[Rfam]
RNA sequence: GAGUCAGCCAAUGAAUCUGCUUACCUGAAUGUUUGUGCAGAAUUUUUUUAAAAGCUGGCAAUAGUAAAGUCAUGUUACAAGCCUUAAGGACAUUGAAGUCAUUUAAAGUCCCUGAAAAUGGCUAUAAGA
Numbered sequence: 001g002a003g004u005c006a007g008c009c010a011a012u013g014a015a016u017c018u019g020c021u022u023a024c025c026u027g028a029a030u031g032u033u034u035g036u037g038c039a040g041a042a043u044u045u046u047u048u049u050a051a052a053a054g055c056u057g058g059c060a061a062u063a064g065u066a067a068a069g070u071c072a073u074g075u076u077a078c079a080a081g082c083c084u085u086a087a088g089g090a091c092a093u094u095g096a097a098g099u100c101a102u103u104u105a106a107a108g109u110c111c112c113u114g115a116a117a118a119u120g121g122c123u124a125u126a127a128g129a
Base pairs, nucleotide, nucleotide: 003059004058005057006056007055016041017040018039019038020037069122070121071120072119081109082108084106085105086104087103089100090099091098
RNA: Small nucleolar RNA SNORA33